Shown here is a 79-nucleotide RNA from Rhizobium subbaraonis, a member of the family "chrB-a RNA". A search with the family's covariance model found it, with a score of 66 bits. Pairs were carried over by alignment from the consensus structure, which is taken from published work. By type it is a cis-regulatory element. The family has 163 seed sequences and 347 matches in Rfam 15.1.
Nucleotides: 079
Stems, first nucleotide, its partner, number of pairs: 005024006046073006
Number, partner (000 for none) and nucleotide at each position: 001000g002000g003000c004000a005024u006023g007022g008021g009020g010019u011000u012000u013000g014000c015000g016000a017000a018000u019010g020009c021008c022007c023006c024005a025000c026000g027000a028000g029000g030000c031000g032000c033000c034000a035000u036000g037000c038000c039000g040000a041000a042000c043000u044000u045000c046073g047072c048071g049070u050069c051068c052000u053000u054000u055000a056000a057000u058000a059000u060000c061000c062000a063000c064000a065000g066000a067000g068051g069050g070049a071048c072047g073046u074000a075000u076000c077000a078000u079000g